About this RNA
A member of the RNA family "Gammaprotebacteria rimP leader" from Sodalis-like symbiont of Philaenus spumarius, 112 nucleotides long. Lineage of the source: Bacteria > Pseudomonadati > Gammaproteobacteria > Bruguierivoracaceae > Sodalis. Rfam links the family to the GO term regulation of gene expression. The match comes from Rfam's covariance-model search (61 bits).
RNA sequence: AGCCGACUGCGGGUUUACAAAAUCCAGUCACUUAACACCCCGAUUUUUUCGGGUUUUUUUGUUGUUUCACUACUUUCACUACAGUAACACUGGGCUAAUUAGCCCUUUUUUU
Numbered sequence: 001a002g003c004c005g006a007c008u009g010c011g012g013g014u015u016u017a018c019a020a021a022a023u024c025c026a027g028u029c030a031c032u033u034a035a036c037a038c039c040c041c042g043a044u045u046u047u048u049u050c051g052g053g054u055u056u057u058u059u060u061g062u063u064g065u066u067u068c069a070c071u072a073c074u075u076u077c078a079c080u081a082c083a084g085u086a087a088c089a090c091u092g093g094g095c096u097a098a099u100u101a102g103c104c105c106u107u108u109u110u111u112u
Stems, first nucleotide, its partner, number of pairs: 034058002037055001039053004092105004